[Rfam]
Nucleotides: 126
Base pairs, nucleotide, nucleotide: 028056029055030054031053032052033042034041035040086111087110088109089108090107091106092105093104094103095102
Number, partner (000 for none) and nucleotide at each position: 001000c002000a003000g004000g005000u006000u007000g008000a009000u010000a011000u012000u013000g014000u015000u016000c017000u018000g019000c020000c021000c022000a023000a024000g025000a026000c027000u028056c029055a030054g031053g032052u033042g034041g035040c036000g037000a038000a039000a040035g041034c042033c043000u044000u045000a046000a047000u048000g049000u050000u051000u052032g053031c054030c055029u056028g057000c058000c059000g060000a061000g062000g063000a064000a065000g066000a067000u068000g069000u070000g071000a072000a073000a074000g075000u076000u077000u078000u079000a080000c081000a082000u083000u084000u085000c086111u087110c088109u089108c090107u091106a092105u093104g094103u095102c096000u097000u098000g099000g100000u101000g102095g103094g104093c105092g106091u107090a108089g109088g110087g111086a112000u113000u114000u115000u116000u117000u118000a119000u120000u121000c122000c123000c124000a125000u126000c